[Rfam]
Background:
The record is a 73-nucleotide sequence from Crocodylus porosus, which matches "Mammalian CPEB3 ribozyme" in Rfam. The organism belongs to Crocodylus, within Eukaryota. Rfam's curators write: The mammalian CPEB3 ribozyme is a self cleaving RNA located in the second intron of the CPEB3 gene which belongs to a family of genes regulating messenger RNA polyadenylation. The base pairs follow the family's consensus structure, which is taken from published work. The match comes from Rfam's covariance-model search (41 bits). Its family is annotated with RNA nuclease activity in the Gene Ontology.

RNA sequence: UGCAAGUUUAAGGGCAUAGCAGAAGAGCUUAUGGUGCGGCCUGUCAGUUUCCAGUGAAUCUGCAAAUUCUGCU
Numbered sequence: 001u002g003c004a005a006g007u008u009u010a011a012g013g014g015c016a017u018a019g020c021a022g023a024a025g026a027g028c029u030u031a032u033g034g035u036g037c038g039g040c041c042u043g044u045c046a047g048u049u050u051c052c053a054g055u056g057a058a059u060c061u062g063c064a065a066a067u068u069c070u071g072c073u
Stems, first nucleotide, its partner, number of pairs: 012041002015038001018073007025037001027035001045062003049058003